[Rfam]
RNA sequence: UCAAACGUGGUUCGCAAACCUCCCACGCAAAAAAACUAGGAAAAU
Numbered sequence: 001u002c003a004a005a006c007g008u009g010g011u012u013c014g015c016a017a018a019c020c021u022c023c024c025a026c027g028c029a030a031a032a033a034a035a036c037u038a039g040g041a042a043a044a045u
Base pairs, nucleotide, nucleotide: 006027007026008025009024010023016037
RNA: PreQ1 (pre queuosine) riboswitch aptamer
Organism: Conservatibacter flavescens